c-di-AMP riboswitch aptamer (ydaO/yuaA leader): a 180-nucleotide RNA from Lapillicoccus jejuensis. The pairing is the family consensus, mapped onto this sequence. Rfam links the family to the GO terms regulation of gene expression and cyclic-di-AMP binding.

RNA sequence: GACGGAAUGGCACUGCAGCCAUGGCAGGAGCGGGGGACCCACCGUUCUUCGGCCGUCUCGGACGGUCUUGGGGUGAAGUCCUCCAGCGGACCCGCGUGCGGGCCCCGUUGUAGGGCCGGGUGACUCUCAACCUCCACCCGAAUCCGACAGCUCACCUCGUAGGCGCGAGAGGUCUGACAC
Numbered sequence: 001g002a003c004g005g006a007a008u009g010g011c012a013c014u015g016c017a018g019c020c021a022u023g024g025c026a027g028g029a030g031c032g033g034g035g036g037a038c039c040c041a042c043c044g045u046u047c048u049u050c051g052g053c054c055g056u057c058u059c060g061g062a063c064g065g066u067c068u069u070g071g072g073g074u075g076a077a078g079u080c081c082u083c084c085a086g087c088g089g090a091c092c093c094g095c096g097u098g099c100g101g102g103c104c105c106c107g108u109u110g111u112a113g114g115g116c117c118g119g120g121u122g123a124c125u126c127u128c129a130a131c132c133u134c135c136a137c138c139c140g141a142a143u144c145c146g147a148c149a150g151c152u153c154a155c156c157u158c159g160u161a162g163g164c165g166c167g168a169g170a171g172g173u174c175u176g177a178c179a180c
Base pairs, nucleotide, nucleotide: 011165013163014162019028020027030160031159032158033157034156035155040070041069071145072144073143079115080114081113082112118139119138120137121136